[Rfam]
RNA: Potassium channel RNA editing signal
RNA sequence: GUCGGUUACGGAGACAUGAGACCGGUCGGCGCGUGGGGCAAAUUGGUCGGUUCUUUGUGCGCCAUCGCCGGCGUUCUGACACUGGCAUUGCCUGUGCCUGUGAUUGUAUCGAAC
Numbered sequence: 001g002u003c004g005g006u007u008a009c010g011g012a013g014a015c016a017u018g019a020g021a022c023c024g025g026u027c028g029g030c031g032c033g034u035g036g037g038g039c040a041a042a043u044u045g046g047u048c049g050g051u052u053c054u055u056u057g058u059g060c061g062c063c064a065u066c067g068c069c070g071g072c073g074u075u076c077u078g079a080c081a082c083u084g085g086c087a088u089u090g091c092c093u094g095u096g097c098c099u100g101u102g103a104u105u106g107u108a109u110c111g112a113a114c
Base pairs, nucleotide, nucleotide: 001114002113005110007108008107009106010105011104014101015100016099018097020095037077038076040074049063050062051061
Dot-bracket structure: ((..(.(((((..(((.(.(................((.(........(((.........)))..........).)).................).).)))..))))).)..))